Annotation
Guanidine-II riboswitch aptamer (mini-ykkC): a 47-nucleotide RNA sequence from Methyloversatilis universalis. The organism belongs to Methyloversatilis universalis, within Bacteria. The family has 72 seed sequences and 1,589 matches in Rfam 15.1. Simpler in structure and has fewer highly conserved nucleotide positions than the ykkC-yxkD leader. It scores 37 bits against the family's covariance model. The base pairs follow the family's consensus structure, which is taken from published work.

Nucleotides: 047
Stems, first nucleotide, its partner, number of pairs: 001020002004017005034047005
Number, partner (000 for none) and nucleotide at each position: 001020c002019c003000a004017g005016c006015g007014g008013g009000a010000c011000g012000a013008c014007c015006c016005g017004c018000a019002g020001g021000g022000c023000g024000u025000u026000u027000c028000u029000c030000g031000c032000g033000a034047c035046g036045g037044g038043g039000a040000c041000g042000g043038c044037c045036c046035c047034g